Shown here is a 230-nucleotide RNA from Trifolium subterraneum, a member of the family "MIR2655 microRNA precursor family".
RNA sequence: CCCUUAUCUUUUAAAAGUUUCAAGUUGGUCCCAUAUCUUUUUUUUAGGUUUCAAGUUGGUCCCUUCCGUCAAUUUUUUUACUGUUACCGUUAAAGUUGGACACGUGUCAUCUGUCCAAGUGUGCCACGUGUCCAAAUUUAACGGAAAUAGUUAAAAAUUGACGGAAGGGACCAACUGGAAACCUAAAAAAAAGAUAAGGGACCAACUUGAAACUUUUAAACGAUAAGGGA
Number, nucleotide and partner (000 for none) at each position: 001c000002c228003c227004u226005u225006a224007u223008c222009u000010u000011u000012u000013a000014a000015a000016a000017g000018u000019u000020u000021c000022a000023a207024g206025u205026u000027g203028g202029u201030c000031c199032c198033a000034u196035a195036u194037c193038u192039u191040u190041u189042u188043u187044u000045u185046a184047g183048g000049u000050u000051u000052c000053a000054a000055g000056u000057u000058g000059g000060u000061c000062c000063c000064u000065u000066c000067c000068g000069u000070c000071a000072a000073u000074u000075u000076u000077u000078u000079u000080a000081c000082u000083g000084u000085u000086a000087c000088c000089g000090u000091u000092a000093a000094a000095g000096u000097u000098g000099g000100a000101c000102a000103c000104g000105u000106g000107u000108c000109a000110u000111c000112u000113g000114u000115c000116c000117a000118a000119g000120u000121g000122u000123g000124c000125c000126a000127c000128g000129u000130g000131u000132c000133c000134a000135a000136a000137u000138u000139u000140a000141a000142c000143g000144g000145a000146a000147a000148u000149a000150g000151u000152u000153a000154a000155a000156a000157a000158u000159u000160g000161a000162c000163g000164g000165a000166a000167g000168g000169g000170a000171c000172c000173a000174a000175c000176u000177g000178g000179a000180a000181a000182c000183c047184u046185a045186a000187a043188a042189a041190a040191a039192a038193g037194a036195u035196a034197a000198g032199g031200g000201a029202c028203c027204a000205a025206c024207u023208u000209g000210a000211a000212a000213c000214u000215u000216u000217u000218a000219a000220a000221c000222g008223a007224u006225a005226a004227g003228g002229g000230a000